[Rfam]
RNA sequence: CUCUUAUCAAGAGAGGUGGAGGGACUGGCCCGAUGAAACCCGGCAACCCCGCAUAUGCUUGCGGACAAGGUGCUAAUUCCAGCAGAGCGGUAUGCGCUCUGAAAGAUAAGGG
Numbered sequence: 001c002u003c004u005u006a007u008c009a010a011g012a013g014a015g016g017u018g019g020a021g022g023g024a025c026u027g028g029c030c031c032g033a034u035g036a037a038a039c040c041c042g043g044c045a046a047c048c049c050c051g052c053a054u055a056u057g058c059u060u061g062c063g064g065a066c067a068a069g070g071u072g073c074u075a076a077u078u079c080c081a082g083c084a085g086a087g088c089g090g091u092a093u094g095c096g097c098u099c100u101g102a103a104a105g106a107u108a109a110g111g112g
Stems, first nucleotide, its partner, number of pairs: 001112008013041001015040003021031003025082004042074004047070002049064004078104001083101006
Dot-bracket structure: ((((((((....(.(((...(((.[[[[)))......))))((((.((((((........))))....))))))...(]]]]((((((.......))))))..)))))))))
About this RNA: A member of the RNA family "SAM riboswitch aptamer (S box leader)" from Aneurinibacillus sp. XH2, 112 nucleotides long. It scores 93 bits against the family's covariance model. Pairs were carried over by alignment from the consensus structure, which is taken from published work. The organism belongs to Aneurinibacillus, within Bacteria.